[Rfam]
RNA sequence: CGGAAGCAAAGUUCUGUGACACUCCGACUCUGGGUACGAUAGCAGUCAGUGCACUACAGAACUUUGUCUCCGG
Numbered sequence: 001c002g003g004a005a006g007c008a009a010a011g012u013u014c015u016g017u018g019a020c021a022c023u024c025c026g027a028c029u030c031u032g033g034g035u036a037c038g039a040u041a042g043c044a045g046u047c048a049g050u051g052c053a054c055u056a057c058a059g060a061a062c063u064u065u066g067u068c069u070c071c072g073g
Base pairs, nucleotide, nucleotide: 004069006067007066008065009064010063011062012061013060014059015058016057020051021050022049023048026047027046028045029044
Dot-bracket structure: ...(.(((((((((((...((((..((((..............)))))))).....))))))))))).)....
mir-148/mir-152 microRNA precursor family: a 73-nucleotide sequence.
On this family, see Chen et al., Genes Dev 2005: "The developmental miRNA profiles of zebrafish as determined by small RNA cloning".
The sequence is in the family's curated seed alignment.
Rfam links the family to the GO terms RISC complex and miRNA-mediated post-transcriptional gene silencing.